[Rfam]
RNA sequence: GCUCUUCAAAACCGCCGUCGGCCUCUCUAUAUUCGCUUUGCCGGUCGCAAGGCCGGCUAUGGCGAUAAACGUUCUUCGAAAUAAACCUAUCGGACCCGGGGGCGGUACCCGGCGCCUCCACCCGAACCCAGGACCGAUGGCCGCACGGCCUCAGCGUGUUGGGUUCCGGCGGGGGCGAAAUAGGAUCGACGAGGGCGUAAAGGGUGAACUUUCGCUCGGCAUGGUUCCGCCGUUAUCGGGCCUUUGCAAUAGUUGCCAACGACAACUUUGCUCCGGUGGCUGUCGCCGCGUAAGCGGUGCCAAAAACCGACCUAAAGUCCUAGCGGGUAGCACCGCAUAGGCGGGGUUCGGAGGUACCUGGCAACAGAAACCUCCACU
Numbered sequence: 001g002c003u004c005u006u007c008a009a010a011a012c013c014g015c016c017g018u019c020g021g022c023c024u025c026u027c028u029a030u031a032u033u034c035g036c037u038u039u040g041c042c043g044g045u046c047g048c049a050a051g052g053c054c055g056g057c058u059a060u061g062g063c064g065a066u067a068a069a070c071g072u073u074c075u076u077c078g079a080a081a082u083a084a085a086c087c088u089a090u091c092g093g094a095c096c097c098g099g100g101g102g103c104g105g106u107a108c109c110c111g112g113c114g115c116c117u118c119c120a121c122c123c124g125a126a127c128c129c130a131g132g133a134c135c136g137a138u139g140g141c142c143g144c145a146c147g148g149c150c151u152c153a154g155c156g157u158g159u160u161g162g163g164u165u166c167c168g169g170c171g172g173g174g175g176c177g178a179a180a181u182a183g184g185a186u187c188g189a190c191g192a193g194g195g196c197g198u199a200a201a202g203g204g205u206g207a208a209c210u211u212u213c214g215c216u217c218g219g220c221a222u223g224g225u226u227c228c229g230c231c232g233u234u235a236u237c238g239g240g241c242c243u244u245u246g247c248a249a250u251a252g253u254u255g256c257c258a259a260c261g262a263c264a265a266c267u268u269u270g271c272u273c274c275g276g277u278g279g280c281u282g283u284c285g286c287c288g289c290g291u292a293a294g295c296g297g298u299g300c301c302a303a304a305a306a307c308c309g310a311c312c313u314a315a316a317g318u319c320c321u322a323g324c325g326g327g328u329a330g331c332a333c334c335g336c337a338u339a340g341g342c343g344g345g346g347u348u349c350g351g352a353g354g355u356a357c358c359u360g361g362c363a364a365c366a367g368a369a370a371c372c373u374c375c376a377c378u
Stems, first nucleotide, its partner, number of pairs: 040057007061216005071209004076204002086195003090192003096112005113177007217232004223242002227239002344359004350375006
Shown here is a 378-nucleotide RNA sequence from Methylorubrum extorquens, a member of the family "Alphaproteobacteria transfer-messenger RNA".
The source organism's lineage runs through Bacteria, Pseudomonadota, Methylobacteriaceae, Methylorubrum and Methylorubrum extorquens.
Rfam classes the family as a non-coding RNA gene.
It is one of the family's seed sequences.